[Rfam]
The record is a 126-nucleotide RNA from Cellulosilyticum lentocellum, which matches "SAM riboswitch aptamer (S box leader)" in Rfam.
RNA sequence: UUCUUAUCGAGAGAGGCUGAGGGAUAGGCCCUAUGAUGCCCAGCAACCGGACAUUCCAUAAGUGUACACGGUGCUAAUUCCUACAAACGUAGAGUAAUUAAAACUUUGAGUUUGAGAAGAUAAGAA
Numbered sequence: 001u002u003c004u005u006a007u008c009g010a011g012a013g014a015g016g017c018u019g020a021g022g023g024a025u026a027g028g029c030c031c032u033a034u035g036a037u038g039c040c041c042a043g044c045a046a047c048c049g050g051a052c053a054u055u056c057c058a059u060a061a062g063u064g065u066a067c068a069c070g071g072u073g074c075u076a077a078u079u080c081c082u083a084c085a086a087a088c089g090u091a092g093a094g095u096a097a098u099u100a101a102a103a104c105u106u107u108g109a110g111u112u113u114g115a116g117a118a119g120a121u122a123a124g125a126a
Stems, first nucleotide, its partner, number of pairs: 001126008013041001015040003021031003025083004042075004047071002049067001051065004079118001084114005